[Rfam]
RNA: Bacterial RNase P class A
RNA sequence: CCAGACGGCUGGACGAUCGCUGUGUGUGCGAUGAGGAUCGCAUACAGGGAGGAAAGUCCGGGCUCCAUGGGAAGACGGUACCGGCUAAUUGCCGGCGGGGGCGACCCCAGGGACAGUGCCACAGAAAACAGACCGCCCGCCGGACUGUGCCUCAUGCGUUCAUUCGCGGGGGAACAUGUUGCGGGUAAGGGCGAAACGGUGCGGCAAGAGCGCACCGCAUCUCCGGCAACGGCGAUGGUCAUGGUAAACCCUACCGGGAGCAAGACCGAAUAGGAACGGCAGGUUUCCGCAAGGAAACCGGGGGUUUCUCGCCCCGUCGUUCGGGUUGGUUGCGUGAGGCCUGCAGCAAUGCAGGUCCCAGAGGAAUGAUCGUCCCGCUUUCGGGCGGACAGAACCCGGCUUACAGGCCGUCUGGCACC
Numbered sequence: 001c002c003a004g005a006c007g008g009c010u011g012g013a014c015g016a017u018c019g020c021u022g023u024g025u026g027u028g029c030g031a032u033g034a035g036g037a038u039c040g041c042a043u044a045c046a047g048g049g050a051g052g053a054a055a056g057u058c059c060g061g062g063c064u065c066c067a068u069g070g071g072a073a074g075a076c077g078g079u080a081c082c083g084g085c086u087a088a089u090u091g092c093c094g095g096c097g098g099g100g101g102c103g104a105c106c107c108c109a110g111g112g113a114c115a116g117u118g119c120c121a122c123a124g125a126a127a128a129c130a131g132a133c134c135g136c137c138c139g140c141c142g143g144a145c146u147g148u149g150c151c152u153c154a155u156g157c158g159u160u161c162a163u164u165c166g167c168g169g170g171g172g173a174a175c176a177u178g179u180u181g182c183g184g185g186u187a188a189g190g191g192c193g194a195a196a197c198g199g200u201g202c203g204g205c206a207a208g209a210g211c212g213c214a215c216c217g218c219a220u221c222u223c224c225g226g227c228a229a230c231g232g233c234g235a236u237g238g239u240c241a242u243g244g245u246a247a248a249c250c251c252u253a254c255c256g257g258g259a260g261c262a263a264g265a266c267c268g269a270a271u272a273g274g275a276a277c278g279g280c281a282g283g284u285u286u287c288c289g290c291a292a293g294g295a296a297a298c299c300g301g302g303g304g305u306u307u308c309u310c311g312c313c314c315c316g317u318c319g320u321u322c323g324g325g326u327u328g329g330u331u332g333c334g335u336g337a338g339g340c341c342u343g344c345a346g347c348a349a350u351g352c353a354g355g356u357c358c359c360a361g362a363g364g365a366a367u368g369a370u371c372g373u374c375c376c377g378c379u380u381u382c383g384g385g386c387g388g389a390c391a392g393a394a395c396c397c398g399g400c401u402u403a404c405a406g407g408c409c410g411u412c413u414g415g416c417a418c419c
Base pairs, nucleotide, nucleotide: 001415002414003413004412005411006410007409008408009407010406011404012374013373014372015371016370017369018368020049021048023046024045025044026043027042028041029040030039031038054402055401056400058399059398060397061396062395063260064259065258066257071310072309074307076256077255078254079253080252081095082094083093084092085091096110097108098107099106100105111251112250116249117248118245119244120243133190134189135186136185137184138183139182140181142179198216199215200214201213202212203211217240218237219236220235221234223232224231225230264331265330266329267328274322275321276320277319278318279317301315302314303313304312305311338357339356340355341354342353343352344351345350